A member of the RNA family "Guanidine-II riboswitch aptamer (mini-ykkC)" from Pseudomonas sp. HPB0071, 45 nucleotides long. Rfam's curators write: Simpler in structure and has fewer highly conserved nucleotide positions than the ykkC-yxkD leader. The source organism's lineage runs through Bacteria, Pseudomonadati, Pseudomonadota, Gammaproteobacteria and Pseudomonas.
RNA sequence: CUCCCGGGACGACCCUGGAGCGUGAAAUUACGGCGGGACGGCCCG
Numbered sequence: 001c002u003c004c005c006g007g008g009a010c011g012a013c014c015c016u017g018g019a020g021c022g023u024g025a026a027a028u029u030a031c032g033g034c035g036g037g038a039c040g041g042c043c044c045g
Base pairs, nucleotide, nucleotide: 001020002019003018004017006015007014008013034045035044036043037042